[Rfam]
PAGEV RNA: a 218-nucleotide RNA from Vibrio diabolicus. It is annotated as a small RNA. The base pairs follow the family's consensus structure, which is taken from published work. Taxonomically the source falls in Vibrio diabolicus (Bacteria, Pseudomonadati, Gammaproteobacteria, Vibrio).
RNA sequence: CUCUGUUUGGACUCAAGAUGUUUUGGACAGAGCGAUGCGCAUCAGCCACCGACCAAGGGAAGUUCCAAAGGUGGCAGGUAAAGGCACUAAUCAAAACUUGCGAAAGCACGAUAAAACCGCUCUCUUGUAGCUGCUAGAGGGAGAAUUGCGGAAAAGGAAUAAUUGAUUAGUGUUGUGAGACUGGAAUGGGGGCGUAAAGCCUUACUCACAGCGCAGGG
Number, nucleotide and partner (000 for none) at each position: 001c032002u031003c030004u029005g028006u027007u026008u000009g000010g000011a000012c000013u000014c000015a000016a000017g000018a000019u000020g000021u000022u000023u000024u000025g000026g007027a006028c005029a004030g003031a002032g001033c000034g000035a000036u000037g000038c000039g000040c000041a000042u000043c000044a000045g075046c074047c073048a072049c071050c070051g000052a000053c000054c000055a000056a000057g000058g000059g000060a000061a000062g187063u186064u185065c184066c183067a000068a000069a000070g050071g049072u048073g047074g046075c045076a000077g000078g000079u000080a000081a000082a000083g000084g000085c172086a171087c170088u169089a168090a167091u166092c165093a164094a163095a000096a000097c000098u000099u000100g000101c000102g000103a000104a000105a000106g000107c000108a000109c000110g000111a000112u000113a000114a000115a000116a000117c151118c150119g149120c000121u143122c000123u000124c000125u000126u000127g000128u000129a000130g000131c000132u000133g000134c000135u000136a000137g000138a000139g000140g000141g000142a000143g121144a000145a000146u000147u000148g000149c119150g118151g117152a000153a000154a000155a000156g000157g000158a000159a000160u000161a000162a000163u094164u093165g092166a091167u090168u089169a088170g087171u086172g085173u211174u210175g209176u208177g207178a206179g000180a000181c000182u000183g066184g065185a064186a063187u062188g000189g000190g202191g201192g200193c199194g000195u000196a000197a000198a000199g193200c192201c191202u190203u000204a000205c000206u178207c177208a176209c175210a174211g173212c000213g000214c000215a000216g000217g000218g000